[Rfam]
RNA: Bacterial large subunit ribosomal RNA, nucleotides 919 to 1365
Nucleotides: 447
Base pairs, nucleotide, nucleotide: 001386002385003384004383005382006381011024012023013022014021015020026129027127028126029125030124031123032122033121036120037117038116039115040114041113042112043111044110045109051103052101053100057097058096059095061093062092063091064090069085070083071082072081073080133158134157135156136155137154138153139152140151141150142149163174164173165172178351179350180349181348183347184346185345189341190340191339198338200337201336202335203334204333205332217311218310221308222307223306224305225304226303227302228301229300230299238295239294240293241292242291244268245267246266249263250262251261269273274289278287279286352376353375354374355373356372357371358370359369360368361367387442389439390438391437392436393435394434395433398431399430406426407425408424409423410422411420412419413418
Number, partner (000 for none) and nucleotide at each position: 001386c002385u003384c004383c005382c006381c007000g008000a009000a010000a011024u012023g013022c014021a015020u016000u017000u018000a019000g020015g021014u022013g023012c024011a025000g026129c027127g028126u029125u030124g031123c032122g033121u034000g035000g036120u037117g038116c039115u040114u041113g042112c043111c044110g045109g046000a047000g048000g049000u050000a051103g052101g053100g054000c055000u056000c057097u058096g059095g060000u061093u062092g063091g064090c065000u066000g067000a068000u069085g070083g071082g072081c073080c074000c075000g076000a077000c078000a079000a080073g081072g082071u083070u084000a085069c086000u087000g088000a089000c090064g091063u092062c093061a094000g095059c096058c097057a098000a099000a100053c101052u102000u103051c104000g105000a106000a107000u108000g109045c110044c111043g112042g113041u114040a115039a116038g117037u118000u119000g120036a121033g122032c123031g124030u125029g126028g127027c128000a129026g130000u131000g132000a133158g134157a135156c136155u137154g138153c139152g140151g141150g142149g143000g144000a145000u146000a147000a148000g149142c150141u151140c152139c153138g154137u155136g156135g157134u158133c159000g160000a161000g162000a163174g164173g165172g166000a167000a168000a169000c170000a171000g172165c173164c174163c175000a176000g177000a178351u179350c180349g181348u182000c183347g184346a185345c186000u187000a188000a189341g190340g191339c192000c193000c194000c195000u196000a197000a198338g199000c200337g201336u202335g203334u204333g205332c206000u207000g208000a209000g210000u211000g212000g213000g214000a215000a216000a217311g218310g219000a220000u221308g222307u223306g224305g225304a226303g227302u228301c229300g230299c231000a232000g233000u234000g235000a236000c237000a238295a239294c240293c241292a242291g243000g244268a245267g246266g247000u248000u249263g250262g251261c252000u253000u254000a255000g256000a257000a258000g259000c260000a261251g262250c263249c264000a265000u266246c267245c268244u269273u270000g271000a272000a273269a274289g275000a276000g277000u278287g279286c280000g281000u282000a283000a284000u285000a286279g287278c288000u289274c290000a291242c292241u293240g294239g295238u296000c297000a298000a299230g300229u301228g302227a303226u304225u305224u306223c307222g308221c309000g310218c311217c312000g313000a314000u315000a316000a317000u318000g319000u320000a321000g322000c323000g324000g325000g326000g327000c328000u329000c330000a331000a332205g333204c334203a335202u336201a337200c338198c339191g340190c341189c342000g343000a344000a345185g346184u347183c348181g349180c350179g351178g352376c353375a354374c355373c356372u357371g358370c359369g360368c361367c362000u363000u364000u365000g366000u367361g368360g369359u370358g371357u372356g373355g374354g375353u376352g377000g378000g379000u380000a381006g382005g383004g384003g385002a386001g387442c388000g389439u390438c391437g392436u393435a394434c395433a396000c397000g398431c399430c400000g401000g402000u403000g404000a405000a406426g407425c408424u409423g410422c411420c412419g413418a414000g415000u416000g417000a418413u419412c420411g421000u422410g423409u424408g425407g426406u427000g428000g429000a430399g431398g432000g433395u434394g435393u436392g437391c438390g439389a440000g441000u442387g443000a444000g445000a446000a447000u